The record is a 122-nucleotide RNA sequence from Syntrophaceticus schinkii, which matches "Molybdenum/Tungsten riboswitch aptamer (Moco RNA motif)" in Rfam. A search with the family's covariance model found it, with a score of 61 bits.
Nucleotides: 122
Base pairs, nucleotide, nucleotide: 006113011108012107013106014105015104016103019058020057022055024053025052026051027050028049029048034043035042036041064089065088066087067086068085069084070083071082072081073080074079091098
Number, partner (000 for none) and nucleotide at each position: 001000a002000c003000a004000a005000a006113u007000g008000c009000g010000g011108u012107c013106c014105u015104c016103c017000g018000a019058g020057u021000c022055u023000u024053u025052c026051g027050g028049c029048c030000u031000g032000u033000c034043g035042c036041u037000a038000c039000a040000g041036a042035g043034c044000u045000a046000a047000u048029g049028g050027c051026c052025g053024a054000u055022a056000a057020a058019c059000c060000g061000a062000u063000a064089g065088g066087g067086u068085g069084u070083a071082u072081c073080u074079g075000g076000a077000a078000a079074c080073g081072g082071g083070u084069g085068c086067g087066c088065c089064u090000c091098c092000c093000a094000u095000u096000g097000u098091g099000a100000a101000a102000a103016g104015g105014a106013g107012g108011a109000u110000u111000u112000a113006a114000u115000g116000a117000u118000g119000u120000u121000a122000u